[Rfam]
RNA sequence: GGUCAGUGAUGAUUCUUGGCAUGUAUUAGCUGAUGCCAGCUGAUGCCUAAACUCUUCAGCUCUAGAAUUACUCUGAGACCCA
Numbered sequence: 001g002g003u004c005a006g007u008g009a010u011g012a013u014u015c016u017u018g019g020c021a022u023g024u025a026u027u028a029g030c031u032g033a034u035g036c037c038a039g040c041u042g043a044u045g046c047c048u049a050a051a052c053u054c055u056u057c058a059g060c061u062c063u064a065g066a067a068u069u070a071c072u073c074u075g076a077g078a079c080c081c082a
Base pairs, nucleotide, nucleotide: 001080002079003078004077

A member of the RNA family "Small nucleolar RNA SNORD45" from Indicator maculatus, 82 nucleotides long.
On this family, see Galardi et al., Mol Cell Biol 2002: "Purified box C/D snoRNPs are able to reproduce site-specific 2'-O-methylation of target RNA in vitro".
Rfam classes the family as a C/D-box small nucleolar RNA.